[Rfam]
RNA sequence: GAAUGACGGGCGAGAAACCCGUCCGCCGAAUAACCAAGGGUUCCAGGGUCAAGCUAAUCUGCCCUGGGUAAGUCGGGACCUAAGGCGAGGCCGACAGGCGUAGUCGAUGGACAUCCGGUUGAUAUUCCGGAACCGGCGAAGAACCGCCCAUGACGAACCUUUUGAUGCUAAGUGCCUGAAACUCGAUGACGUCUUCGGACAGAUUCGAGCGGAGCGCACGACCCGAUUUGGUAGUAGUCAAGCGAUGGAGAGACGCAGGAAGGUAGCCUCCGCGUGGCGAUGGUAGUCCACGUCCAAGGGUGUAGGGAGUGAGAUAGGCAAAUCCGUCUCACACAUAUCCUGAGACCUGAUAGUGACCGCGAAUGCGGGAAGCAGGGUGAUCCUAUGCUGCCAAGAAAAUCUUCUAGCGAGGUUCGAGCCGCCCGUACCCCAAACCGACUCAGGUGGUUAGGUAGAGAAUACCAAGGCGAU
Numbered sequence: 001g002a003a004u005g006a007c008g009g010g011c012g013a014g015a016a017a018c019c020c021g022u023c024c025g026c027c028g029a030a031u032a033a034c035c036a037a038g039g040g041u042u043c044c045a046g047g048g049u050c051a052a053g054c055u056a057a058u059c060u061g062c063c064c065u066g067g068g069u070a071a072g073u074c075g076g077g078a079c080c081u082a083a084g085g086c087g088a089g090g091c092c093g094a095c096a097g098g099c100g101u102a103g104u105c106g107a108u109g110g111a112c113a114u115c116c117g118g119u120u121g122a123u124a125u126u127c128c129g130g131a132a133c134c135g136g137c138g139a140a141g142a143a144c145c146g147c148c149c150a151u152g153a154c155g156a157a158c159c160u161u162u163u164g165a166u167g168c169u170a171a172g173u174g175c176c177u178g179a180a181a182c183u184c185g186a187u188g189a190c191g192u193c194u195u196c197g198g199a200c201a202g203a204u205u206c207g208a209g210c211g212g213a214g215c216g217c218a219c220g221a222c223c224c225g226a227u228u229u230g231g232u233a234g235u236a237g238u239c240a241a242g243c244g245a246u247g248g249a250g251a252g253a254c255g256c257a258g259g260a261a262g263g264u265a266g267c268c269u270c271c272g273c274g275u276g277g278c279g280a281u282g283g284u285a286g287u288c289c290a291c292g293u294c295c296a297a298g299g300g301u302g303u304a305g306g307g308a309g310u311g312a313g314a315u316a317g318g319c320a321a322a323u324c325c326g327u328c329u330c331a332c333a334c335a336u337a338u339c340c341u342g343a344g345a346c347c348u349g350a351u352a353g354u355g356a357c358c359g360c361g362a363a364u365g366c367g368g369g370a371a372g373c374a375g376g377g378u379g380a381u382c383c384u385a386u387g388c389u390g391c392c393a394a395g396a397a398a399a400u401c402u403u404c405u406a407g408c409g410a411g412g413u414u415c416g417a418g419c420c421g422c423c424c425g426u427a428c429c430c431c432a433a434a435c436c437g438a439c440u441c442a443g444g445u446g447g448u449u450a451g452g453u454a455g456a457g458a459a460u461a462c463c464a465a466g467g468c469g470a471u
Stems, first nucleotide, its partner, number of pairs: 005023006024469004032449004038429002043067006052060002074425004079110002084105003088101001090099003114226002117223005229421004236414004242408002247404005255391004261384003266378004272293006294353001298348004305341003309332007317325002357368004435444002451463004

A member of the RNA family "Bacterial large subunit ribosomal RNA" from Knoellia aerolata, 471 nucleotides of a longer RNA. It scores 2821 bits against the family's covariance model. The organism belongs to Knoellia aerolata, within Bacteria.